mir-9195 microRNA precursor family: an 89-nucleotide RNA from Cnephaeus nilssonii.
The family has 3 seed sequences and 438 matches in Rfam 15.1.
The source organism's lineage runs through Eukaryota, Opisthokonta, Metazoa, Chordata and Cnephaeus.
The base pairs follow the family's consensus structure, which was predicted with RNAalifold.
A search with the family's covariance model found it, with a score of 94 bits.
RNA sequence: AGAGGCCCAUCCGUGGCCUGGCGCGGAAUGCUUGCCUCAUUGCCGCGGCAACAAAGCAAGCAUUCCACCAGGCCGCUCAUGCUGCCUGC
Numbered sequence: 001a002g003a004g005g006c007c008c009a010u011c012c013g014u015g016g017c018c019u020g021g022c023g024c025g026g027a028a029u030g031c032u033u034g035c036c037u038c039a040u041u042g043c044c045g046c047g048g049c050a051a052c053a054a055a056g057c058a059a060g061c062a063u064u065c066c067a068c069c070a071g072g073c074c075g076c077u078c079a080u081g082c083u084g085c086c087u088g089c
Stems, first nucleotide, its partner, number of pairs: 004086003013076006021069001023068001025066011040051004